[Rfam]
RNA sequence: CCUUCGGAGCGUCAUACCAAGCAGUAGUAGGUUUAUCCGAAACUGGACGCGAUGAACAAGGAA
Dot-bracket structure: ((((....(((((........(((.....((.....))....)))))))).......))))..

Rfam assigns this 63-nucleotide RNA sequence from Thermosyntropha lipolytica to the family "RAGATH-18 RNA". The organism belongs to Thermosyntropha lipolytica, within Bacteria. The family's consensus secondary structure is taken from published work.